[Rfam]
RNA sequence: GGCAGGGUGGCAGAAAGUCAAUGCGCUAAAUUGUAAAUUUAUAAAAAAAGGUUUAAUUCCUUUCUUUGCCA
Numbered sequence: 001g002g003c004a005g006g007g008u009g010g011c012a013g014a015a016a017g018u019c020a021a022u023g024c025g026c027u028a029a030a031u032u033g034u035a036a037a038u039u040u041a042u043a044a045a046a047a048a049a050g051g052u053u054u055a056a057u058u059c060c061u062u063u064c065u066u067u068g069c070c071a
Base pairs, nucleotide, nucleotide: 001070002069003068004067005066006065007064010024011023012022027041028040029039030038047063048062049061050060051059

tRNA: a 71-nucleotide RNA sequence.
The base pairs follow the family's consensus structure, which is taken from published work.
The family's RNA type in Rfam is transfer RNA.